[Rfam]
RNA sequence: GAACGCUGGCGGCGUGCCUAACACAUGCAAGUCAUACGGAUACGGAAGUUAGAAAAUAGAGGUCAGAGGUUAGAAAGUAAGGAGGAAAUUAGCUCCGCUAAUUUUUCCUGAUCUGACUUCUGACUUCCGACUUCUAACUUCUGUUAUCAGUGGCGCACGGGUGAGUAACGCGUGGGAAUCUACCCGGUAGUGGGGGAUAACCCCUCGAAAGGGGGGCUAAUACCGCAUAAGUCCUACGGGGUAAAGAUGGCCUCUUAGAGGCUAUCGCUUCCGGAUGAGCCCGCGUCCUAUUAGCUAGUUGGUGAGGUAAUGGCUUACCAAGGCCACGAUGGGUAGCCGGUCUGAGAGGAUGAACGGCCACACUGGGACUGAGACACGGCCCAGACUCCUACGGGAGGCAGCAGUGGGGAAUUUUGCGCAAUGGGGGAAACCCUGACGCAGCAACGCCGCGUGGAUGAUGAAGGCCUUCGGGUUGUAAAGUCCUGUUCUGGGGGAAGAAACGGUAGGAAGCCAAUACCUUCCUGCCCUGACGGUACCCCAGCAGAAAGCUCCGGCCAAUUAUGUGCCAGCAGCCGCGGUAAUACAUAAGGAGCAAGCGUU
Numbered sequence: 001g002a003a004c005g006c007u008g009g010c011g012g013c014g015u016g017c018c019u020a021a022c023a024c025a026u027g028c029a030a031g032u033c034a035u036a037c038g039g040a041u042a043c044g045g046a047a048g049u050u051a052g053a054a055a056a057u058a059g060a061g062g063u064c065a066g067a068g069g070u071u072a073g074a075a076a077g078u079a080a081g082g083a084g085g086a087a088a089u090u091a092g093c094u095c096c097g098c099u100a101a102u103u104u105u106u107c108c109u110g111a112u113c114u115g116a117c118u119u120c121u122g123a124c125u126u127c128c129g130a131c132u133u134c135u136a137a138c139u140u141c142u143g144u145u146a147u148c149a150g151u152g153g154c155g156c157a158c159g160g161g162u163g164a165g166u167a168a169c170g171c172g173u174g175g176g177a178a179u180c181u182a183c184c185c186g187g188u189a190g191u192g193g194g195g196g197a198u199a200a201c202c203c204c205u206c207g208a209a210a211g212g213g214g215g216g217c218u219a220a221u222a223c224c225g226c227a228u229a230a231g232u233c234c235u236a237c238g239g240g241g242u243a244a245a246g247a248u249g250g251c252c253u254c255u256u257a258g259a260g261g262c263u264a265u266c267g268c269u270u271c272c273g274g275a276u277g278a279g280c281c282c283g284c285g286u287c288c289u290a291u292u293a294g295c296u297a298g299u300u301g302g303u304g305a306g307g308u309a310a311u312g313g314c315u316u317a318c319c320a321a322g323g324c325c326a327c328g329a330u331g332g333g334u335a336g337c338c339g340g341u342c343u344g345a346g347a348g349g350a351u352g353a354a355c356g357g358c359c360a361c362a363c364u365g366g367g368a369c370u371g372a373g374a375c376a377c378g379g380c381c382c383a384g385a386c387u388c389c390u391a392c393g394g395g396a397g398g399c400a401g402c403a404g405u406g407g408g409g410a411a412u413u414u415u416g417c418g419c420a421a422u423g424g425g426g427g428a429a430a431c432c433c434u435g436a437c438g439c440a441g442c443a444a445c446g447c448c449g450c451g452u453g454g455a456u457g458a459u460g461a462a463g464g465c466c467u468u469c470g471g472g473u474u475g476u477a478a479a480g481u482c483c484u485g486u487u488c489u490g491g492g493g494g495a496a497g498a499a500a501c502g503g504u505a506g507g508a509a510g511c512c513a514a515u516a517c518c519u520u521c522c523u524g525c526c527c528u529g530a531c532g533g534u535a536c537c538c539c540a541g542c543a544g545a546a547a548g549c550u551c552c553g554g555c556c557a558a559u560u561a562u563g564u565g566c567c568a569g570c571a572g573c574c575g576c577g578g579u580a581a582u583a584c585a586u587a588a589g590g591a592g593c594a595a596g597c598g599u600u
Stems, first nucleotide, its partner, number of pairs: 002600006009450006015443002017408001022406003026403003031154003036151002039148002042049002161361003170286007179278002184274004189269002192226001194224002201216006232241003246266008287333003294324003299321008336358004340351004363384005386397004414440001416439003422435005453483004463474004487545001488541006497531001503525007548593005559588005569576002
RNA: Bacterial small subunit ribosomal RNA, nucleotides 31 to 630